[Rfam]
RNA sequence: CCCAUGGCUGAAGCCAUGGGCUUUGUUCUUUGGGGCUUUCAGCCCU
Numbered sequence: 001c002c003c004a005u006g007g008c009u010g011a012a013g014c015c016a017u018g019g020g021c022u023u024u025g026u027u028c029u030u031u032g033g034g035g036c037u038u039u040c041a042g043c044c045c046u
Stems, first nucleotide, its partner, number of pairs: 001020008033045005

The family of this 46-nucleotide RNA sequence from Persicirhabdus sediminis is "Acido-Lenti-1 RNA". Lineage of the source: Bacteria > Pseudomonadati > Verrucomicrobiia > Verrucomicrobiaceae > Persicirhabdus. It is annotated as a small RNA.